[Rfam]
RNA: Bacterial RNase P class A
Organism: Planctomonas sp. JC2975
RNA sequence: CGGGCCGGCAAGACGGUCGCGUCGGCAUCCGCUCUCGUAUCGGAGGCCGCCGAGGAACGUCCGGGCUCCACAGAGCAGGACGGUGGGUAACACCCACCCGGGGCAACCCGCGAGACAGUGCCACAGAAAACAGACCGCUCGCGUUCGCGUGAGUAAGGGUGAAACGGUGGUGUAAGAGACCACCAGCGACCGGGGCGACCCGGCCGGCUCGGUAAACCUCGUCCGGAGCAAGGUCAGACAGGGGACCAUGAGGCUGCUCGCCUCGUUCCCGGGUAGACCGCUAGAGGGCCGCGGCAACGCGGCUCCGAGAUAGAUGGCCGUCCAGGAUGUGCCGUGCCGCAAGCACAGCACAUUCCAACAGAACCCGGCGUAUCAGCCGGCCCGUUCC
Numbered sequence: 001c002g003g004g005c006c007g008g009c010a011a012g013a014c015g016g017u018c019g020c021g022u023c024g025g026c027a028u029c030c031g032c033u034c035u036c037g038u039a040u041c042g043g044a045g046g047c048c049g050c051c052g053a054g055g056a057a058c059g060u061c062c063g064g065g066c067u068c069c070a071c072a073g074a075g076c077a078g079g080a081c082g083g084u085g086g087g088u089a090a091c092a093c094c095c096a097c098c099c100g101g102g103g104c105a106a107c108c109c110g111c112g113a114g115a116c117a118g119u120g121c122c123a124c125a126g127a128a129a130a131c132a133g134a135c136c137g138c139u140c141g142c143g144u145u146c147g148c149g150u151g152a153g154u155a156a157g158g159g160u161g162a163a164a165c166g167g168u169g170g171u172g173u174a175a176g177a178g179a180c181c182a183c184c185a186g187c188g189a190c191c192g193g194g195g196c197g198a199c200c201c202g203g204c205c206g207g208c209u210c211g212g213u214a215a216a217c218c219u220c221g222u223c224c225g226g227a228g229c230a231a232g233g234u235c236a237g238a239c240a241g242g243g244g245a246c247c248a249u250g251a252g253g254c255u256g257c258u259c260g261c262c263u264c265g266u267u268c269c270c271g272g273g274u275a276g277a278c279c280g281c282u283a284g285a286g287g288g289c290c291g292c293g294g295c296a297a298c299g300c301g302g303c304u305c306c307g308a309g310a311u312a313g314a315u316g317g318c319c320g321u322c323c324a325g326g327a328u329g330u331g332c333c334g335u336g337c338c339g340c341a342a343g344c345a346c347a348g349c350a351c352a353u354u355c356c357a358a359c360a361g362a363a364c365c366c367g368g369c370g371u372a373u374c375a376g377c378c379g380g381c382c383c384g385u386u387c388c
Base pairs, nucleotide, nucleotide: 001384002383003382004381005380006379007378008377009376011373012322013321014320015319016318017317018316020052021051023049024048025047026046028044029043030042031041057371058370059369061368062367063366064365065364066228067227068226069225073259074258075257076256078224079223080222081221082220083097084096085095086094087093098112099110100109101108102107113219114218118217119216120213121212122211135158136157137154138153139152140151141150142149143148166184167183168182169181170180171179186208187206188205190203191202192201193200194199232279233278234277235276242270243269244268245267247265250264251263252262253261254260286305287304288303289302290301291300292299293298